[Rfam]
Glycine riboswitch aptamer: a 119-nucleotide sequence from Paenibacillus pectinilyticus.
This family represents the bacterial glycine riboswitch.
Nucleotides: 119
Stems, first nucleotide, its partner, number of pairs: 001119001003117005014042006044104003048099001051098003057091002
Number, partner (000 for none) and nucleotide at each position: 001119g002000a003117c004116u005115c006114u007113g008000g009000a010000g011000a012000g013000c014042u015041u016040c017039g018038a019037g020000a021000c022000u023000c024000g025000u026000u027000c028000a029000c030000a031000c032000g033000g034000g035000a036000g037019u038018u039017c040016g041015a042014a043000c044104a045103c046102c047000c048099a049000a050000g051098g052097g053096g054000a055000a056000a057091c058090u059000a060000a061000a062000c063000g064000g065000c066000a067000g068000a069000u070000c071000g072000u073000a074000u075000a076000u077000u078000u079000c080000u081000u082000a083000c084000c085000g086000u087000u088000a089000u090058a091057g092000g093000c094000a095000a096053c097052u098051c099048u100000c101000a102046g103045g104044u105000a106000c107000a108000a109000g110000g111000g112000a113007c114006a115005g116004g117003g118000g119001c

NCBI's taxonomy places the organism under Bacteria, Bacillota, Bacilli, Caryophanales, Paenibacillus.